[Rfam]
RNA sequence: CCAUGAUAGAUGGGGAAUUAGCGAUGCCUUGUAACCUGCAAUUCGCUACAGCAGGGUUGAAUUCCCAUCUUAGGGAUAAAGUUGUAUAGUCUGCCCCAAGUGUGUGGCGUUGAGGGUUGGGUCCUGCGCAACGCAUGCUUGUGAACCGUGUCAGGUCUUGACGGAAGCAGCACUAAGCGAGAUUUUGCGUGUGCCGUAGGGGUGCCUAAUCUGAGUUAACUACUUGGGUACCGUAUGGAACUUUAUUUCGAAGAUGGGUUCAUGG
Numbered sequence: 001c002c003a004u005g006a007u008a009g010a011u012g013g014g015g016a017a018u019u020a021g022c023g024a025u026g027c028c029u030u031g032u033a034a035c036c037u038g039c040a041a042u043u044c045g046c047u048a049c050a051g052c053a054g055g056g057u058u059g060a061a062u063u064c065c066c067a068u069c070u071u072a073g074g075g076a077u078a079a080a081g082u083u084g085u086a087u088a089g090u091c092u093g094c095c096c097c098a099a100g101u102g103u104g105u106g107g108c109g110u111u112g113a114g115g116g117u118u119g120g121g122u123c124c125u126g127c128g129c130a131a132c133g134c135a136u137g138c139u140u141g142u143g144a145a146c147c148g149u150g151u152c153a154g155g156u157c158u159u160g161a162c163g164g165a166a167g168c169a170g171c172a173c174u175a176a177g178c179g180a181g182a183u184u185u186u187g188c189g190u191g192u193g194c195c196g197u198a199g200g201g202g203u204g205c206c207u208a209a210u211c212u213g214a215g216u217u218a219a220c221u222a223c224u225u226g227g228g229u230a231c232c233g234u235a236u237g238g239a240a241c242u243u244u245a246u247u248u249c250g251a252a253g254a255u256g257g258g259u260u261c262a263u264g265g
Stems, first nucleotide, its partner, number of pairs: 001265006009058003012030004017025003035055005064258007073249005079243005085237004092230002096227006104220002106217003114212009123200006129191002132189004138181005148173004156165003
Record summary:
The family of this 265-nucleotide sequence from Anaerosphaera aminiphila is "Bacterial large signal recognition particle RNA". A search with the family's covariance model found it, with a score of 205 bits. NCBI's taxonomy places the organism under Bacteria, Bacillati, Tissierellia, Peptoniphilaceae, Anaerosphaera aminiphila.